[Rfam]
RNA sequence: UCUUUGGAGGUGGAGCUCCUUGAUGUCCAAAGAUGGGACUUCAGGGCUGUUUGAGCUGCUGGGUUAUGGAUUCCACCUUCCUAUUCCAUUAAUGCAUGCGCUCUCUCUUUAGAAGAAGAAGAAGAUCUGAAGAAGAAGAAGAAGAAGAAGAAGAAGAAUAUGGAAUAGGGUUGUGGUUUGCAUGACACAGGAGCUGCAGCGGCUCUCUAAUGGCCCCUUUUUUGGAUUGAAGGGAGCUCUACACCCAAAUAUC
Numbered sequence: 001u002c003u004u005u006g007g008a009g010g011u012g013g014a015g016c017u018c019c020u021u022g023a024u025g026u027c028c029a030a031a032g033a034u035g036g037g038a039c040u041u042c043a044g045g046g047c048u049g050u051u052u053g054a055g056c057u058g059c060u061g062g063g064u065u066a067u068g069g070a071u072u073c074c075a076c077c078u079u080c081c082u083a084u085u086c087c088a089u090u091a092a093u094g095c096a097u098g099c100g101c102u103c104u105c106u107c108u109u110u111a112g113a114a115g116a117a118g119a120a121g122a123a124g125a126u127c128u129g130a131a132g133a134a135g136a137a138g139a140a141g142a143a144g145a146a147g148a149a150g151a152a153g154a155a156g157a158a159u160a161u162g163g164a165a166u167a168g169g170g171u172u173g174u175g176g177u178u179u180g181c182a183u184g185a186c187a188c189a190g191g192a193g194c195u196g197c198a199g200c201g202g203c204u205c206u207c208u209a210a211u212g213g214c215c216c217c218u219u220u221u222u223u224g225g226a227u228u229g230a231a232g233g234g235a236g237c238u239c240u241a242c243a244c245c246c247a248a249a250u251a252u253c
Base pairs, nucleotide, nucleotide: 013239014238015237016236017235018234019233020232025227026226027225028224029223036216056193057192059190060189061188065184066183067182068181073176074175075174076173
RNA: MIR159 microRNA precursor family
Organism: Apostasia shenzhenica